RNA sequence: AAGGCGGUAUCCGAAAAGCCUAAAAAAGAGUAGGAA
Numbered sequence: 001a002a003g004g005c006g007g008u009a010u011c012c013g014a015a016a017a018g019c020c021u022a023a024a025a026a027a028g029a030g031u032a033g034g035a036a
Base pairs, nucleotide, nucleotide: 002021003020004019005018010035011034012033